[Rfam]
Bacterial large subunit ribosomal RNA: a 587-nucleotide part of an RNA from Oceanobacillus halophilus. Lineage of the source: Bacteria > Bacillati > Caryophanales > Bacillaceae > Oceanobacillus. The family's consensus secondary structure is taken from published work.

RNA sequence: CCCGCGACAGGACGGAAAGACCCCGUGGAGCUUUACUGUAGCCUGAUAUUGAAUGUCUGUGCAGCUUGUACAGGAUAGGUGGGAGCCUCAGAAGCGUGAGCGCUAGCUUACGUGGAGGCAGCCGUGGGAUACCACCCUGGCUGUAUGGACAUUCUAACCCAGGACCGUGAUCCGGUUCGGAGACAGUGUCAGGCGGGCAGUUUGACUGGGGCGGUCGCCUCCCAAAAGGUAACGGAGGCGCCCAAAGGUUCCCUCAGAAUGGUUGGAAAUCAUUCGCAGAGUGUAAAGGCAGAAGGGAGCUUGACUGCGAGACCUACAAGUCGAGCAGGGACGAAAGUCGGGCUUAGUGAUCCGGUGGUUCCGCAUGGAAGGGCCAUCGCUCAACGGAUAAAAGCUACCCCGGGGAUAACAGGCUUAUCUCCCCCAAGAGUUCACAUCGACGGGGAGGUUUGGCACCUCGAUGUCGGCUCAUCGCAUCCUGGGGCUGUAGUCGGUCCCAAGGGUUGGGCUGUUCGCCCAUUAAAGCGGUACGCGAGCUGGGUUCAGAACGUCGUGAGACAGUUCGGUCCCUAUCCGUCGUGGGCGCA
Numbered sequence: 001c002c003c004g005c006g007a008c009a010g011g012a013c014g015g016a017a018a019g020a021c022c023c024c025g026u027g028g029a030g031c032u033u034u035a036c037u038g039u040a041g042c043c044u045g046a047u048a049u050u051g052a053a054u055g056u057c058u059g060u061g062c063a064g065c066u067u068g069u070a071c072a073g074g075a076u077a078g079g080u081g082g083g084a085g086c087c088u089c090a091g092a093a094g095c096g097u098g099a100g101c102g103c104u105a106g107c108u109u110a111c112g113u114g115g116a117g118g119c120a121g122c123c124g125u126g127g128g129a130u131a132c133c134a135c136c137c138u139g140g141c142u143g144u145a146u147g148g149a150c151a152u153u154c155u156a157a158c159c160c161a162g163g164a165c166c167g168u169g170a171u172c173c174g175g176u177u178c179g180g181a182g183a184c185a186g187u188g189u190c191a192g193g194c195g196g197g198c199a200g201u202u203u204g205a206c207u208g209g210g211g212c213g214g215u216c217g218c219c220u221c222c223c224a225a226a227a228g229g230u231a232a233c234g235g236a237g238g239c240g241c242c243c244a245a246a247g248g249u250u251c252c253c254u255c256a257g258a259a260u261g262g263u264u265g266g267a268a269a270u271c272a273u274u275c276g277c278a279g280a281g282u283g284u285a286a287a288g289g290c291a292g293a294a295g296g297g298a299g300c301u302u303g304a305c306u307g308c309g310a311g312a313c314c315u316a317c318a319a320g321u322c323g324a325g326c327a328g329g330g331a332c333g334a335a336a337g338u339c340g341g342g343c344u345u346a347g348u349g350a351u352c353c354g355g356u357g358g359u360u361c362c363g364c365a366u367g368g369a370a371g372g373g374c375c376a377u378c379g380c381u382c383a384a385c386g387g388a389u390a391a392a393a394g395c396u397a398c399c400c401c402g403g404g405g406a407u408a409a410c411a412g413g414c415u416u417a418u419c420u421c422c423c424c425c426a427a428g429a430g431u432u433c434a435c436a437u438c439g440a441c442g443g444g445g446a447g448g449u450u451u452g453g454c455a456c457c458u459c460g461a462u463g464u465c466g467g468c469u470c471a472u473c474g475c476a477u478c479c480u481g482g483g484g485c486u487g488u489a490g491u492c493g494g495u496c497c498c499a500a501g502g503g504u505u506g507g508g509c510u511g512u513u514c515g516c517c518c519a520u521u522a523a524a525g526c527g528g529u530a531c532g533c534g535a536g537c538u539g540g541g542u543u544c545a546g547a548a549c550g551u552c553g554u555g556a557g558a559c560a561g562u563u564c565g566g567u568c569c570c571u572a573u574c575c576g577u578c579g580u581g582g583g584c585g586c587a
Base pairs, nucleotide, nucleotide: 001583002582003581004580005579006578007577008576010575011574012573014570015569022404023403024402025401027400028399029396030395031394032393033392035201036200037199038198042193043192044191045190046189047188048187051154052153053152054151055150056149057148058147059146060145061144062143063142064141065140066139068137078136079135080134081133082132085119086118087117094113095112096111097110098109099108100107101106159180160179162178163177164176165175166174167173204216205215206214207213217239218238219237220236221235222234240385242342243341248300249299250298251297252296253295254280255279257275258274259273260272261271262270281290282289305328306327307326308325311322312321313320330339331338332337353379354378355377356376357375358374359373361372362371413454414453415452417451418448419447420446421445422444423443424442428438429437465540466538467537468536469535470532471529472528473527474526475525478503479502481498482497483496484495485494486493505519506518507517508516509515546564547563548562549561550559551558552557